Shown here is a 368-nucleotide part of an RNA from Sulfolobales archaeon HS-7, a member of the family "Archaeal large subunit ribosomal RNA".

RNA sequence: AGGGGAUAACCCUGGCUAGGGAACUCGGCAAAUUAGCCCCGUAACUUCGGGAUAAGGGGUGCCUACUGUAGUGUACGCAGCUACAGUAGGUCGCAGUGACAAGGGGGACCUGACUGUUUAAUAAAAACAUAUGUCCCCGCUAGCCCGUAAGGGUGAGUACGGGGGCUGAAUCCUGGCCACUGGUGGUCGGUGACACCCGGGUUCAACCGGGAGAAGCCCCACUGAAGGCCGGGGGUAACUCUGACCCUCUUAAGGUAGCCAAAUGCCUUGCCGGGCGAGUUCCGGCGCGCAUGAAUGGAUCAACGCGGUCCCCACUGUCCCAGCCAGGGGCCCUGCGAACGCCCUGAGUGGGUCGCACAGUCCCACAU
Dot-bracket structure: ((((.....((((((((.(((..............(((((....(....).....)))))((((((((((((.......))))))))))))(...).......(((((((((..(((.........)))...((((((((..((((....))))..)..)))))))...((((.(((..(((((((..(((....(((((......)))))....))))))))..)))))((((((.......))))))(...)...............((((((.....))))))..........))))...)).)))))))....))).)))))))).)))).............(((((.........)))))..
The organism belongs to Sulfolobales, within Archaea. A reference for the family is Yusupov et al. (2001), "Crystal structure of the ribosome at 5.5 A resolution", Science. The match comes from Rfam's covariance-model search (2848 bits).